[Rfam]
RNA sequence: CUUCAGCGAGCCCAGCCACAGCGGUUCGUCCCGGUCCUGCCCGUAGGCGGCGAUCAGUGCCUGCGCCUC
Numbered sequence: 001c002u003u004c005a006g007c008g009a010g011c012c013c014a015g016c017c018a019c020a021g022c023g024g025u026u027c028g029u030c031c032c033g034g035u036c037c038u039g040c041c042c043g044u045a046g047g048c049g050g051c052g053a054u055c056a057g058u059g060c061c062u063g064c065g066c067c068u069c
Base pairs, nucleotide, nucleotide: 014026015025016024017023031065032059033058038053041050042049043048
RNA: ASpks TB sRNA
Organism: Crossiella cryophila